[Rfam]
RNA sequence: AUUCAUAUGAUGAAAAAAUAACUGCAACAAUAUGAAAUGGAGUUAAGAUUCCAUGAUUCUUAGUAUGUAAGUCUCUGAUGGAU
Numbered sequence: 001a002u003u004c005a006u007a008u009g010a011u012g013a014a015a016a017a018a019u020a021a022c023u024g025c026a027a028c029a030a031u032a033u034g035a036a037a038u039g040g041a042g043u044u045a046a047g048a049u050u051c052c053a054u055g056a057u058u059c060u061u062a063g064u065a066u067g068u069a070a071g072u073c074u075c076u077g078a079u080g081g082a083u
Base pairs, nucleotide, nucleotide: 001083003082004080005079039052040051041050042049043048
A member of the RNA family "Small nucleolar RNA Z199" from Papaver somniferum, 83 nucleotides long. On this family, see Chen et al., Nucleic Acids Res 2003: "The high diversity of snoRNAs in plants: identification and comparative study of 120 snoRNA genes from Oryza sativa". snoZ199 is a C/D box small nucleolar RNA, which acts as a methylation guide RNA for sites on 18S and 25S rRNA. Rice snoZ199 is reported to be homologous to Arabidopsis snoR13. The family's consensus secondary structure was predicted with PFOLD. Rfam links the family to the GO terms RNA processing and nucleolus.